The family of this 118-nucleotide RNA from Chordeiles acutipennis is "Small nucleolar RNA SNORA61". A search with the family's covariance model found it, with a score of 83 bits.

RNA sequence: ACCCUCCAGAUCCCUUUCCCAUCAGAUCUGAACACCGAUCUUGUGGUCGAAAAAGGAGGAAGAAUAAAAUUCAAACUGGUCUUGGCCUCUUGGCUGGUGCAGCCCUGCUCUGAGAGGG
Numbered sequence: 001a002c003c004c005u006c007c008a009g010a011u012c013c014c015u016u017u018c019c020c021a022u023c024a025g026a027u028c029u030g031a032a033c034a035c036c037g038a039u040c041u042u043g044u045g046g047u048c049g050a051a052a053a054a055g056g057a058g059g060a061a062g063a064a065u066a067a068a069a070u071u072c073a074a075a076c077u078g079g080u081c082u083u084g085g086c087c088u089c090u091u092g093g094c095u096g097g098u099g100c101a102g103c104c105c106u107g108c109u110c111u112g113a114g115a116g117g118g
Stems, first nucleotide, its partner, number of pairs: 003059005019046003023043001025040004076107001078105002081102002086097002

Notes:
The base pairs follow the family's consensus structure, which was predicted with PFOLD. Gene Ontology terms of the family: RNA processing and nucleolus. About the family: ACA61 is a member of the H/ACA class of snoRNA that guide the sites of modification of uridines to pseudouridines.